[Rfam]
RNA sequence: AUGUGACUGAUUUCAUUUGGCGCAUAGAUUCUACAAAAAUUUCUAGCACCAUUUGAAAUCAGUUUUAU
Dot-bracket structure: (((.(.(((((((((..(((.(..((((.............)))).).)))..))))))))))..)))
Numbered sequence: 001a002u003g004u005g006a007c008u009g010a011u012u013u014c015a016u017u018u019g020g021c022g023c024a025u026a027g028a029u030u031c032u033a034c035a036a037a038a039a040u041u042u043c044u045a046g047c048a049c050c051a052u053u054u055g056a057a058a059u060c061a062g063u064u065u066u067a068u
Stems, first nucleotide, its partner, number of pairs: 001068003005063001007062009018051003022047001025045004